Rfam assigns this 103-nucleotide sequence from Thermobaculum terrenum to the family "SAM riboswitch aptamer (S box leader)".

RNA sequence: GCCUUAUCAAGAGAGGUGGAGGGAGACGGCCCUGUGAAGCCCGGCAACCAGCGCCCAGGAGCGCCAGGUGCCAAUUCCGGCGAGGUCACUCGCAAGAUAAGGG
Numbered sequence: 001g002c003c004u005u006a007u008c009a010a011g012a013g014a015g016g017u018g019g020a021g022g023g024a025g026a027c028g029g030c031c032c033u034g035u036g037a038a039g040c041c042c043g044g045c046a047a048c049c050a051g052c053g054c055c056c057a058g059g060a061g062c063g064c065c066a067g068g069u070g071c072c073a074a075u076u077c078c079g080g081c082g083a084g085g086u087c088a089c090u091c092g093c094a095a096g097a098u099a100a101g102g103g
Stems, first nucleotide, its partner, number of pairs: 002102007013042001015041003021032003027079003043072004048068002051064003076095001081092004

Record summary: The base pairs follow the family's consensus structure, which is taken from published work. Rfam's curators put it in the seed alignment. The source organism's lineage runs through Bacteria, Chloroflexota, Thermobaculales (SeqCode), Thermobaculum (SeqCode) and Thermobaculum terrenum.